Annotation
The record is a 350-nucleotide part of an RNA from Azoarcus sp. KH32C, which matches "Bacterial large subunit ribosomal RNA" in Rfam. A search with the family's covariance model found it, with a score of 2826 bits.

RNA sequence: UGAGAGAACUCAGGAGAAGGAACUCGGCAAAUUGAUACCGUAACUUCGGGAGAAGGUAUGCCCCGGUAGCUUGUAGGAGUACAUCCGAAGGGCGACGGGGCCGCAGAGAAUCGGUGGCUGCGACUGUUUAUUAAAAACACAGCACUCUGCAAACACGAAAGUGGACGUAUAGGGUGUGACGCCUGCCCGGUGCCGGAAGGUUAAGUGAUGGGGUGCAAGCUCUUGAUCGAAGCCCCGGUAAACGGCGGCCGUAACUAUAACGGUCCUAAGGUAGCGAAAUUCCUUGUCGGGUAAGUUCCGACCUGCACGAAUGGCGUAACGAUGGCCACACUGUCUCCUCCUGAGACUCA
Number, nucleotide and partner (000 for none) at each position: 001u350002g349003a348004g347005a000006g000007a000008a000009c345010u344011c343012a342013g341014g340015a339016g338017a000018a336019g335020g334021a000022a000023c000024u000025c000026g000027g000028c000029a000030a000031a000032u000033u000034g000035a059036u058037a057038c056039c055040g000041u000042a000043a000044c049045u000046u000047c000048g000049g044050g000051a000052g000053a000054a000055g039056g038057u037058a036059u035060g101061c100062c099063c098064c097065g096066g000067u000068a000069g000070c000071u000072u000073g082074u081075a080076g000077g000078a000079g000080u075081a074082c073083a000084u000085c000086c000087g000088a000089a000090g000091g000092g000093c000094g000095a000096c065097g064098g063099g062100g061101c060102c106103g000104c000105a000106g102107a000108g000109a000110a000111u000112c000113g000114g329115u328116g327117g326118c325119u324120g323121c321122g320123a000124c000125u139126g138127u137128u000129u000130a000131u000132u000133a000134a000135a000136a000137a127138c126139a125140c000141a000142g177143c176144a175145c174146u173147c172148u171149g170150c167151a000152a000153a000154c163155a162156c161157g000158a000159a000160a000161g156162u155163g154164g000165a000166c000167g150168u000169a000170u149171a148172g147173g146174g145175u144176g143177u142178g000179a000180c316181g315182c314183c313184u000185g246186c245187c244188c000189g000190g243191u242192g239193c238194c237195g236196g235197a000198a000199g234200g233201u232202u000203a000204a000205g228206u000207g000208a000209u000210g223211g222212g221213g220214u219215g000216c000217a000218a000219g214220c213221u212222c211223u210224u000225g000226a000227u000228c205229g000230a000231a000232g201233c200234c199235c196236c195237g194238g193239u192240a000241a000242a191243c190244g187245g186246c185247g265248g264249c263250c262251g261252u260253a000254a000255c000256u000257a000258u000259a000260a252261c251262g250263g249264u248265c247266c270267u000268a000269a000270g266271g000272u000273a000274g000275c000276g303277a000278a000279a000280u000281u000282c000283c000284u000285u000286g302287u301288c300289g299290g298291g297292u000293a000294a000295g000296u000297u291298c290299c289300g288301a287302c286303c276304u000305g000306c000307a000308c000309g000310a000311a000312u000313g183314g182315c181316g180317u000318a000319a000320c122321g121322a000323u120324g119325g118326c117327c116328a115329c114330a000331c000332u000333g000334u020335c019336u018337c000338c016339u015340c014341c013342u012343g011344a010345g009346a000347c004348u003349c002350a001